[Rfam]
RNA sequence: GCGUUUACCAAGGGGUGCCGGAAACGGCUGAGAUCCAACAUAUGGGAACCCUUCAACCUGAUCCGGAUAAUACCGGCGUAGGGAUGGUUAUCAUCAGAACU
Numbered sequence: 001g002c003g004u005u006u007a008c009c010a011a012g013g014g015g016u017g018c019c020g021g022a023a024a025c026g027g028c029u030g031a032g033a034u035c036c037a038a039c040a041u042a043u044g045g046g047a048a049c050c051c052u053u054c055a056a057c058c059u060g061a062u063c064c065g066g067a068u069a070a071u072a073c074c075g076g077c078g079u080a081g082g083g084a085u086g087g088u089u090a091u092c093a094u095c096a097g098a099a100c101u
Base pairs, nucleotide, nucleotide: 007088008087009086010085011052012051013050014049016046017028018027019026020025035045036044037043057082058081059080060079063076064075065074066073
TPP riboswitch aptamer (THI element): a 101-nucleotide RNA from an Alteromonadaceae bacterium. It scores 76 bits against the family's covariance model. The family's consensus secondary structure is taken from published work. Rfam's curators write: Vitamin B(1) in its active form thiamin pyrophosphate (TPP) is an essential coenzyme that is synthesised by coupling of pyrimidine and thiazole moieties in bacteria.